A member of the RNA family "Plastid-atpF group II-D1 intron" from Vicia sativa, 53 nucleotides long. Plastid atpF is a non-coding RNA (ncRNA) recognised in plastids. The base pairs follow the family's consensus structure, which was predicted with LocARNA. The sequence is in the family's curated seed alignment.
RNA sequence: UAUAAUUUUUUCGAUAUAGAACACUCAUGUCGAUAAAAUUACUUGAAUUAUCU
Numbered sequence: 001u002a003u004a005a006u007u008u009u010u011u012c013g014a015u016a017u018a019g020a021a022c023a024c025u026c027a028u029g030u031c032g033a034u035a036a037a038a039u040u041a042c043u044u045g046a047a048u049u050a051u052c053u
Stems, first nucleotide, its partner, number of pairs: 011033007
Dot-bracket structure: ..........(((((((.........)))))))....................
The organism belongs to Vicia, within Eukaryota.